[Rfam]
RNA sequence: ACCACCGUAGCUAAAUGGAAAAGCACCCGAAAGGGAUGAAGGGGGUUCGAUUCCUCCCGGUGGUA
Numbered sequence: 001a002c003c004a005c006c007g008u009a010g011c012u013a014a015a016u017g018g019a020a021a022a023g024c025a026c027c028c029g030a031a032a033g034g035g036a037u038g039a040a041g042g043g044g045g046u047u048c049g050a051u052u053c054c055u056c057c058c059g060g061u062g063g064u065a
Stems, first nucleotide, its partner, number of pairs: 001064007010024003026035003041057005
Notes: Rfam assigns this 65-nucleotide sequence from Phytophthora boehmeriae to the family "tRNA". A search with the family's covariance model found it, with a score of 46 bits. The source organism's lineage runs through Eukaryota, Stramenopiles, Oomycota, Peronosporaceae and Phytophthora.